Rfam assigns this 87-nucleotide RNA sequence to the family "L4-Archaeoglobi ribosomal protein leades". For this family Rfam cites "Discovery of 20 novel ribosomal leader candidates in bacteria and archaea" (Eckert and Weinberg, BMC Microbiol, 2020). Rfam classes the family as a cis-regulatory leader.

Nucleotides: 087
Base pairs, nucleotide, nucleotide: 001087002086003085004084005083008079009078010077011076012075016040017039018038023035024034025033026032043072044071045070046069047068048066049065050064051063053061
Number, partner (000 for none) and nucleotide at each position: 001087c002086u003085g004084a005083u006000c007000a008079g009078g010077c011076g012075u013000a014000u015000u016040g017039g018038g019000c020000g021000a022000a023035c024034g025033u026032u027000c028000g029000u030000g031000c032026a033025a034024c035023g036000a037000g038018c039017c040016c041000u042000u043072c044071u045070u046069c047068a048066u049065a050064c051063a052000g053061c054000c055000a056000u057000u058000a059000a060000u061053g062000a063051u064050g065049u066048g067000a068047u069046g070045a071044a072043g073000a074000u075012g076011c077010g078009c079008c080000a081000u082000u083005g084004u085003c086002a087001g